RNA: MIR1120/MIR1122 microRNA precursor family
Organism: Aegilops tauschii
RNA sequence: GUACUCCCUCUAUAACUUAAUAUAAGACGUUUUUAGACACUAUGACAGUGUCAAAAAACGUCUUAUAUUAAGUUACAGAGGUAGUAU
Numbered sequence: 001g002u003a004c005u006c007c008c009u010c011u012a013u014a015a016c017u018u019a020a021u022a023u024a025a026g027a028c029g030u031u032u033u034u035a036g037a038c039a040c041u042a043u044g045a046c047a048g049u050g051u052c053a054a055a056a057a058a059c060g061u062c063u064u065a066u067a068u069u070a071a072g073u074u075a076c077a078g079a080g081g082u083a084g085u086a087u
Stems, first nucleotide, its partner, number of pairs: 003085003007081005013075005019069016036052006